RNA sequence: UUGUGUUAGCGAUUGAAGUGGCAUCCUUUUUUGAAGUGUAACGAAGAAAAAGAUAUAACGGAAAGCGCGACCUGAA
Numbered sequence: 001u002u003g004u005g006u007u008a009g010c011g012a013u014u015g016a017a018g019u020g021g022c023a024u025c026c027u028u029u030u031u032u033g034a035a036g037u038g039u040a041a042c043g044a045a046g047a048a049a050a051a052g053a054u055a056u057a058a059c060g061g062a063a064a065g066c067g068c069g070a071c072c073u074g075a076a
Stems, first nucleotide, its partner, number of pairs: 009068003013064002018059002023054003029049004036042001